[Rfam]
RNA: U4 spliceosomal RNA
RNA sequence: AUCCUAGUGCAAGGGUCUUACACGAAUCAAUGAGGAUUUUCCGAGAUCGUGUUUGCUAGUCAAACCCAUUGACUACUUCAAGUGAGCUUAAUCGCUUGGGAAUUUUUGAAGCUACCUCUCUCGAGU
Numbered sequence: 001a002u003c004c005u006a007g008u009g010c011a012a013g014g015g016u017c018u019u020a021c022a023c024g025a026a027u028c029a030a031u032g033a034g035g036a037u038u039u040u041c042c043g044a045g046a047u048c049g050u051g052u053u054u055g056c057u058a059g060u061c062a063a064a065c066c067c068a069u070u071g072a073c074u075a076c077u078u079c080a081a082g083u084g085a086g087c088u089u090a091a092u093c094g095c096u097u098g099g100g101a102a103u104u105u106u107u108g109a110a111g112c113u114a115c116c117u118c119u120c121u122c123g124a125g126u
Base pairs, nucleotide, nucleotide: 020052021051022050023049024048026047027046028045034042035041036040077100078099079098080097081096082095083094084093085092